[Rfam]
RNA sequence: UAAAAUAUAACUCUUCGAGUCGGGAUAUCCUGCAGACUUUAUGUUAUGGAUGCCUGACCGGUAGGGUGGACCGGGAAACCGGACCGCCUCCCAUUGCGGAAAGAAGAGAACCGCUAGGUUAU
Dot-bracket structure: ...(.(....((((((..((((((.(((((...((........))..))))))))))).....((((((.((((....)))).))))))((......))...))))))....).).......

A member of the RNA family "Molybdenum/Tungsten riboswitch aptamer (Moco RNA motif)" from Desulfallas thermosapovorans, 122 nucleotides long. The family's consensus secondary structure is taken from published work.